[Rfam]
RNA sequence: AAACGUUCACUUCGCUACACAGCGAAGCGCAGUUCGACUCAGGGCAUGGAACGGGGCCUGAG
Numbered sequence: 001a002a003a004c005g006u007u008c009a010c011u012u013c014g015c016u017a018c019a020c021a022g023c024g025a026a027g028c029g030c031a032g033u034u035c036g037a038c039u040c041a042g043g044g045c046a047u048g049g050a051a052c053g054g055g056g057c058c059u060g061a062g
Base pairs, nucleotide, nucleotide: 004053005052006051007050008049010027011026012025013024014023038062039061040060041059042058043057045055
RNA: Glutamine-II riboswitch aptamer